[Rfam]
RNA sequence: UCAUGAACUUUGUACUGCGUACGUCACUUAGACGGAUUCUAGAAAGUCAUGUAGGAG
Number, nucleotide and partner (000 for none) at each position: 001u000002c000003a000004u000005g000006a000007a000008c000009u000010u000011u000012g000013u000014a000015c000016u000017g000018c000019g037020u036021a000022c034023g033024u032025c031026a000027c000028u000029u000030a000031g025032a024033c023034g022035g000036a020037u019038u000039c000040u000041a000042g000043a000044a000045a000046g000047u000048c000049a000050u000051g000052u000053a000054g000055g000056a000057g000
Shown here is a 57-nucleotide sequence from Kolkwitzia amabilis, a member of the family "Plastid-ndhJ 3UTR RNA". The family's RNA type in Rfam is cis-regulatory element. It is one of the family's seed sequences. From the family's description: Plastid ndhJ is a non-coding RNA (ncRNA) present in plastids. For this family Rfam cites "Retrograde signaling in plants: A critical review focusing on the GUN pathway and beyond" (Richter et al., Plant Commun, 2023). The organism belongs to Kolkwitzia, within Eukaryota.